[Rfam]
RNA sequence: UCCUUCGCGAGGAGGAAUCUGAAGGAAGUUGGAGGCAAAUUUCUGGUCUGAGGAACACGAAUCACAUGAGGCUAAUGCAAACUGGAUGAGUUUGCUAAUCAAAACAAAAUCCGUACUAACCGAAGGGUGUGUUAGUAAAUGUGGCAGAUAUAUGGAAAGAAAGAGUGUGGA
Numbered sequence: 001u002c003c004u005u006c007g008c009g010a011g012g013a014g015g016a017a018u019c020u021g022a023a024g025g026a027a028g029u030u031g032g033a034g035g036c037a038a039a040u041u042u043c044u045g046g047u048c049u050g051a052g053g054a055a056c057a058c059g060a061a062u063c064a065c066a067u068g069a070g071g072c073u074a075a076u077g078c079a080a081a082c083u084g085g086a087u088g089a090g091u092u093u094g095c096u097a098a099u100c101a102a103a104a105c106a107a108a109a110u111c112c113g114u115a116c117u118a119a120c121c122g123a124a125g126g127g128u129g130u131g132u133u134a135g136u137a138a139a140u141g142u143g144g145c146a147g148a149u150a151u152a153u154g155g156a157a158a159g160a161a162a163g164a165g166u167g168u169g170g171a
Stems, first nucleotide, its partner, number of pairs: 001016006029170003036163001040158006046149005062144005071136003075132001080128001082126001084112004090105004

The record is a 171-nucleotide RNA sequence from Clostridium sp. 'deep sea', which matches "Group II catalytic intron D1-D4-3" in Rfam. About the family: Group II introns are found in rRNA, tRNA and mRNA of organelles in fungi, plants and protists, and also in mRNA in bacteria. It scores 132 bits against the family's covariance model. Lineage of the source: Bacteria > Bacillati > Bacillota > Eubacteriales > Clostridium. Pairs were carried over by alignment from the consensus structure.